tRNA: an 85-nucleotide RNA from Corynebacterium appendicis. The base pairs follow the family's consensus structure, which is taken from published work.
RNA sequence: GGAGACGUGGCAGAGCGGCCGAAUGCACUGGUCUUGAAAACCAGCGAGGGUCACACCUCCGGGGGUUCAAAUCCCCCCGUCUCCG
Numbered sequence: 001g002g003a004g005a006c007g008u009g010g011c012a013g014a015g016c017g018g019c020c021g022a023a024u025g026c027a028c029u030g031g032u033c034u035u036g037a038a039a040a041c042c043a044g045c046g047a048g049g050g051u052c053a054c055a056c057c058u059c060c061g062g063g064g065g066u067u068c069a070a071a072u073c074c075c076c077c078c079g080u081c082u083c084c085g
Base pairs, nucleotide, nucleotide: 001084002083003082004081005080006079007078010026011025012024028044029043030042031041032040061077062076063075064074065073
Background
Transfer RNA (tRNA) molecules are approximately 80 nucleotides in length. The organism belongs to Corynebacterium appendicis, within Bacteria.